Shown here is a 759-nucleotide RNA sequence, a member of the family "MISL RNA". The family's RNA type in Rfam is small RNA.
[Rfam]
RNA sequence: GGAUAAUCCCAGGCGACUGGGGAAAGGUCGGGUCAGGCUGGUUGGCCCGGUCCCUCUGAAGUUGGAUCGAAAGGUUCGGCGGAGAGGCAGGAUUCACCAGUUCCUCUGGCAUGUUCGCAAAUGCCAAAAGCGAAUGAGGGACUUGGCGGCCAGGAACGAUUGAGAAACCGUUCCGAGCCGGGUCAAGUAGUUCAGGCCGGUUUCGAGCCUGAGCGAAUCGCAGUUACCCAGAGGGUAAACGGUUGUUACUGUGCACCGGCACGGUGUCGGCGACUCUGGCGGAUUCAAUUAAAACGAUGAACCCGCCCGAUGAAACCCGUCGAAAGGCGGACAAAGGGAGCGCAGGCGCCGGAAAGGACACGCUGACUGGGCAGGUCGCGUGAAAACCUUUCCAAGCUGGCGAUGUUAAAAACGAUGUCGCUGGGCUGUGAGCCAAAAGCAACCUGAGAGUGAAGAGGCGAGACCCGUGGCACCGGGCGAACGCACCGCCAAAAGCGGUGGCUGACCCGGCGCUAAGCGGUCAAGACGCGAAAUGUUGAUCACAGGCGUGUCUUGACCUGGUUCACAGGCAGGUGGCGCAACCACCCGCCGAAGUGAGCUGAAAAGCCUCACUCGAAAUCCGGCGACCGCAAGGCGCCGGACGGCCCUGCUACGAGGCCGAUAACUCCGCUUGCCGUGGAGAAUGGCGUCGGGAAACCGGCAGCCCCCGCGAGGGUGCGCGCCUAAUGCUGGUCCGGGAAAGAGAGAUUGGCGAACUCC
Numbered sequence: 001g002g003a004u005a006a007u008c009c010c011a012g013g014c015g016a017c018u019g020g021g022g023a024a025a026g027g028u029c030g031g032g033u034c035a036g037g038c039u040g041g042u043u044g045g046c047c048c049g050g051u052c053c054c055u056c057u058g059a060a061g062u063u064g065g066a067u068c069g070a071a072a073g074g075u076u077c078g079g080c081g082g083a084g085a086g087g088c089a090g091g092a093u094u095c096a097c098c099a100g101u102u103c104c105u106c107u108g109g110c111a112u113g114u115u116c117g118c119a120a121a122u123g124c125c126a127a128a129a130g131c132g133a134a135u136g137a138g139g140g141a142c143u144u145g146g147c148g149g150c151c152a153g154g155a156a157c158g159a160u161u162g163a164g165a166a167a168c169c170g171u172u173c174c175g176a177g178c179c180g181g182g183u184c185a186a187g188u189a190g191u192u193c194a195g196g197c198c199g200g201u202u203u204c205g206a207g208c209c210u211g212a213g214c215g216a217a218u219c220g221c222a223g224u225u226a227c228c229c230a231g232a233g234g235g236u237a238a239a240c241g242g243u244u245g246u247u248a249c250u251g252u253g254c255a256c257c258g259g260c261a262c263g264g265u266g267u268c269g270g271c272g273a274c275u276c277u278g279g280c281g282g283a284u285u286c287a288a289u290u291a292a293a294a295c296g297a298u299g300a301a302c303c304c305g306c307c308c309g310a311u312g313a314a315a316c317c318c319g320u321c322g323a324a325a326g327g328c329g330g331a332c333a334a335a336g337g338g339a340g341c342g343c344a345g346g347c348g349c350c351g352g353a354a355a356g357g358a359c360a361c362g363c364u365g366a367c368u369g370g371g372c373a374g375g376u377c378g379c380g381u382g383a384a385a386a387c388c389u390u391u392c393c394a395a396g397c398u399g400g401c402g403a404u405g406u407u408a409a410a411a412a413c414g415a416u417g418u419c420g421c422u423g424g425g426c427u428g429u430g431a432g433c434c435a436a437a438a439g440c441a442a443c444c445u446g447a448g449a450g451u452g453a454a455g456a457g458g459c460g461a462g463a464c465c466c467g468u469g470g471c472a473c474c475g476g477g478c479g480a481a482c483g484c485a486c487c488g489c490c491a492a493a494a495g496c497g498g499u500g501g502c503u504g505a506c507c508c509g510g511c512g513c514u515a516a517g518c519g520g521u522c523a524a525g526a527c528g529c530g531a532a533a534u535g536u537u538g539a540u541c542a543c544a545g546g547c548g549u550g551u552c553u554u555g556a557c558c559u560g561g562u563u564c565a566c567a568g569g570c571a572g573g574u575g576g577c578g579c580a581a582c583c584a585c586c587c588g589c590c591g592a593a594g595u596g597a598g599c600u601g602a603a604a605a606g607c608c609u610c611a612c613u614c615g616a617a618a619u620c621c622g623g624c625g626a627c628c629g630c631a632a633g634g635c636g637c638c639g640g641a642c643g644g645c646c647c648u649g650c651u652a653c654g655a656g657g658c659c660g661a662u663a664a665c666u667c668c669g670c671u672u673g674c675c676g677u678g679g680a681g682a683a684u685g686g687c688g689u690c691g692g693g694a695a696a697c698c699g700g701c702a703g704c705c706c707c708c709g710c711g712a713g714g715g716u717g718c719g720c721g722c723c724u725a726a727u728g729c730u731g732g733u734c735c736g737g738g739a740a741a742g743a744g745a746g747a748u749u750g751g752c753g754a755a756c757u758c759c
Base pairs, nucleotide, nucleotide: 008021009020010019011018012017026052027051028050029049030048031047032046033045034044035043036042061080062079063078064077065076066075099143100142101141102140103139104138105137109124110123111122112121115133116132117131118130147180148179149178150177153174154173155172156171157170164204165203166202167201168200188216190214191213192212193211194210195209196208197207219253220252221251222250223249225237226236227235228234241444242443243442244441245440246439278307279306280305281304282303284301285300286299287298318329319328320327321326351393352392353391354390355389356388360381361380362379364378365377366376404417405416406415407414448614449613450612455610456609457608458607471512473510474509475508476507477506484500485499486498487497488496489495521556522555523554524553525552526551527550528549529548530547561599562598563597564596565595566594568590569589570588572586573585574584575583576582619641620640621639622638623637624636625635627634628633642660643659644658645657646656649687650686651685652684665681666680667679668678669677670676696733697732698731699730700729701728702727703720704719706715707714708713744758745757746756